RNA sequence: GAGCACCUGGGACGCGAUGAUCCUCGGACCGAGCACCGGUCGCCGCAGGGAUGGACCCCAUCCCGACGGUCCGAGGGGAGCGAGUGGCGAGACCGACCCGGAUCCAC
Numbered sequence: 001g002a003g004c005a006c007c008u009g010g011g012a013c014g015c016g017a018u019g020a021u022c023c024u025c026g027g028a029c030c031g032a033g034c035a036c037c038g039g040u041c042g043c044c045g046c047a048g049g050g051a052u053g054g055a056c057c058c059c060a061u062c063c064c065g066a067c068g069g070u071c072c073g074a075g076g077g078g079a080g081c082g083a084g085u086g087g088c089g090a091g092a093c094c095g096a097c098c099c100g101g102a103u104c105c106a107c
Stems, first nucleotide, its partner, number of pairs: 001107001003105001005103001007101005013082003022076008038094002040090005